RNA sequence: AGGACCCUGUCUGCCCCGAACGCUCAAGUUCCACUUGGGCCAUUGCGGAGGGGCAAUCGGGUCUA
Numbered sequence: 001a002g003g004a005c006c007c008u009g010u011c012u013g014c015c016c017c018g019a020a021c022g023c024u025c026a027a028g029u030u031c032c033a034c035u036u037g038g039g040c041c042a043u044u045g046c047g048g049a050g051g052g053g054c055a056a057u058c059g060g061g062u063c064u065a
Stems, first nucleotide, its partner, number of pairs: 002064006009057002012055006022040008

This 65-nucleotide sequence from Effusibacillus dendaii belongs to the Rfam family "DUF3800-VIII RNA". NCBI's taxonomy places the organism under Bacteria, Bacillati, Bacillota, Alicyclobacillaceae, Effusibacillus. Rfam describes the family as follows. Bacteroidetes, Cyanobacteria, Firmicutes, Planctomycetes (1 example), Proteobacteria, Tenericutes (1 example). The base pairs follow the family's consensus structure, which is taken from published work.